[Rfam]
RNA sequence: AACGACCGGCUGGGCAUGACUGUGCCCGGCCCACAAGUGGAGGCUUCGAACUCCCACCCGACCACCCCCCGGGGCGGCGGGUCACCGGUCAGACGGCCGUCCCUCGUGGGGGCGCCGCCGUCCGAUGAGUACGCCCCGCGAUCCUCGCGGCGGUGUUCCGGUAGUUCGAGGAACCCCGCAUGUGAUCGUUCGGGGCAUUUUUU
Dot-bracket structure: ...((((((..((............))(((((.(..((((((........)).))))..).((.(((....))).)).))))).)))))).(((((.(...((((...)))).)...)))))..........(((((((((....(((.((((.(((((..........))))).))))..))).)))..)))))).......
A member of the RNA family "Streptomyces RNA 1601" from Streptomyces acidiscabies, 203 nucleotides long.
By type it is a small RNA.
NCBI's taxonomy places the organism under Bacteria, Actinomycetes, Kitasatosporales, Streptomycetaceae, Streptomyces.
Rfam describes the family as follows. Identified by deep sequencing of transcriptome at the end of exponential growth phase. Appears longer on northern blot than sequencing transcript.